Rfam assigns this 130-nucleotide sequence from Ophiophagus hannah to the family "Small nucleolar RNA SNORA69".
The family's consensus secondary structure was predicted with PFOLD.
Lineage of the source: Eukaryota > Gnathostomata > Squamata > Colubroidea > Ophiophagus.
U69 is a member of the H/ACA class of small nucleolar RNAs (snoRNAs) which act as guides in the the modification of uridines to pseudouridines.
Rfam classes the family as an H/ACA-box small nucleolar RNA.

RNA sequence: GAAGCAGGUAGCAAUUGCAGUGUUCCCUUACAUGGAAACACUGCCAUAUCCCUGCUGAGAGCAAUUCUGUUACAUGGGAUUUGAUUUCUCCUCCAUCCUGGUGAAAUUAGCCUCCUUUUAACAGUGACAA
Numbered sequence: 001g002a003a004g005c006a007g008g009u010a011g012c013a014a015u016u017g018c019a020g021u022g023u024u025c026c027c028u029u030a031c032a033u034g035g036a037a038a039c040a041c042u043g044c045c046a047u048a049u050c051c052c053u054g055c056u057g058a059g060a061g062c063a064a065u066u067c068u069g070u071u072a073c074a075u076g077g078g079a080u081u082u083g084a085u086u087u088c089u090c091c092u093c094c095a096u097c098c099u100g101g102u103g104a105a106a107u108u109a110g111c112c113u114c115c116u117u118u119u120a121a122c123a124g125u126g127a128c129a130a
Stems, first nucleotide, its partner, number of pairs: 003056006018043007026035001067124006074117001076115001082109007090101002